[Rfam]
Shown here is a 90-nucleotide RNA from Populus trichocarpa, a member of the family "small nucleolar RNA snoR114".
The family's consensus secondary structure was predicted with RNAalifold.
The organism belongs to Populus, within Eukaryota.
A reference for the family is Chen and Wu (2009), "Mining small RNA sequencing data: a new approach to identify small nucleolar RNAs in Arabidopsis", Nucleic Acids Res.
Rfam's curators put it in the seed alignment.
Nucleotides: 090
Stems, first nucleotide, its partner, number of pairs: 001090004
Number, partner (000 for none) and nucleotide at each position: 001090g002089a003088g004087c005000u006000g007000u008000g009000a010000a011000g012000a013000a014000a015000u016000u017000u018000g019000a020000a021000c022000u023000c024000a025000a026000c027000g028000u029000g030000a031000u032000g033000a034000c035000a036000g037000g038000g039000u040000c041000u042000a043000u044000a045000a046000c047000u048000u049000u050000c051000g052000c053000c054000u055000g056000a057000u058000c059000c060000u061000c062000u063000u064000g065000g066000g067000a068000c069000g070000a071000a072000a073000g074000c075000g076000a077000g078000u079000g080000c081000u082000u083000c084000u085000g086000a087004g088003c089002u090001c